[Rfam]
RNA sequence: UCUGCCGUUGGACGGAGGAGGGCCGCGAGGGUUGGGGAACCCGAUGACCGGACCGCCACCGAGACGGGUGUGGGUUUAAGGGAGCCCUCACCGGUCGACUCCAGCGAAGGAG
Numbered sequence: 001u002c003u004g005c006c007g008u009u010g011g012a013c014g015g016a017g018g019a020g021g022g023c024c025g026c027g028a029g030g031g032u033u034g035g036g037g038a039a040c041c042c043g044a045u046g047a048c049c050g051g052a053c054c055g056c057c058a059c060c061g062a063g064a065c066g067g068g069u070g071u072g073g074g075u076u077u078a079a080g081g082g083a084g085c086c087c088u089c090a091c092c093g094g095u096c097g098a099c100u101c102c103a104g105c106g107a108a109g110g111a112g
Stems, first nucleotide, its partner, number of pairs: 006106007013061003020054002023051003029042005063096003067092002072087004
RNA: Actinomyces-1 RNA
Organism: Actinomyces howellii